[Rfam]
RNA sequence: AGACCACACGCAGAAUCGCACACAUUGAAGCAUCUCAAACGAUGAGGCUAGGAUCUUGGUCUUCGGAUCAGGAUCUCUAGACCUCACAGCAGAAUUGCAAUGCUUUAGGGCAAGUCCUCGGACCUCACGGCAGAAAGUGUCACCAAUAAUUACUGGUUGAACUGUGUCCGCAAAAGAUUGAUUGUUUCGUUUUCGGGUCAAGAUUCCUCUCACCAGGAUGAACGCUCCUCAACGAUCUGAUUUUGCGGCUCAGUGUUUGUCAUAGUUACAGUUAUGCGAUUGCGGUUGUCCUUUGCAAGGAGGAUGACUGUAACACAACGGGGCUCACUCGCGGCCGUGGUC
Numbered sequence: 001a002g003a004c005c006a007c008a009c010g011c012a013g014a015a016u017c018g019c020a021c022a023c024a025u026u027g028a029a030g031c032a033u034c035u036c037a038a039a040c041g042a043u044g045a046g047g048c049u050a051g052g053a054u055c056u057u058g059g060u061c062u063u064c065g066g067a068u069c070a071g072g073a074u075c076u077c078u079a080g081a082c083c084u085c086a087c088a089g090c091a092g093a094a095u096u097g098c099a100a101u102g103c104u105u106u107a108g109g110g111c112a113a114g115u116c117c118u119c120g121g122a123c124c125u126c127a128c129g130g131c132a133g134a135a136a137g138u139g140u141c142a143c144c145a146a147u148a149a150u151u152a153c154u155g156g157u158u159g160a161a162c163u164g165u166g167u168c169c170g171c172a173a174a175a176g177a178u179u180g181a182u183u184g185u186u187u188c189g190u191u192u193u194c195g196g197g198u199c200a201a202g203a204u205u206c207c208u209c210u211c212a213c214c215a216g217g218a219u220g221a222a223c224g225c226u227c228c229u230c231a232a233c234g235a236u237c238u239g240a241u242u243u244u245g246c247g248g249c250u251c252a253g254u255g256u257u258u259g260u261c262a263u264a265g266u267u268a269c270a271g272u273u274a275u276g277c278g279a280u281u282g283c284g285g286u287u288g289u290c291c292u293u294u295g296c297a298a299g300g301a302g303g304a305u306g307a308c309u310g311u312a313a314c315a316c317a318a319c320g321g322g323g324c325u326c327a328c329u330c331g332c333g334g335c336c337g338u339g340g341u342c
Stems, first nucleotide, its partner, number of pairs: 002342006009333003014281006025108007043086005113325002116323004129141004142157004147152001162253003168248006177241004195225001197223002205218004283310011
RNase MRP: a 342-nucleotide RNA sequence from Mortierella alpina.
The match comes from Rfam's covariance-model search (92 bits).
The family's RNA type in Rfam is ribozyme.
Rfam links the family to the GO terms ribonuclease MRP activity, rRNA processing and ribonuclease MRP complex.
RNase MRP is an enzymatically active ribonucleoprotein with two distinct roles in eukaryotes.